[Rfam]
RNA sequence: GGACUGGGAGUGGGAAGGACCCCAAGAGAGGGCAGGCUGCCCCAGGCCCUGCCCCCUCCAGGAAGCCUUCUCUCUCCAGCCC
Number, nucleotide and partner (000 for none) at each position: 001g082002g081003a000004c079005u078006g077007g000008g076009a075010g074011u000012g072013g000014g070015a069016a068017g067018g066019a000020c000021c000022c062023c061024a000025a000026g058027a057028g056029a000030g054031g053032g052033c051034a050035g049036g048037c000038u000039g047040c046041c045042c000043c000044a000045g041046g040047c039048c036049c035050u034051g033052c032053c031054c030055c000056c028057u027058c026059c000060a000061g023062g022063a000064a000065g000066c018067c017068u016069u015070c014071u000072c012073u000074c010075u009076c008077c006078a005079g004080c000081c002082c001
This 82-nucleotide RNA from Nannospalax galili belongs to the Rfam family "mir-3072 microRNA precursor family". The family's consensus secondary structure was predicted with RNAalifold.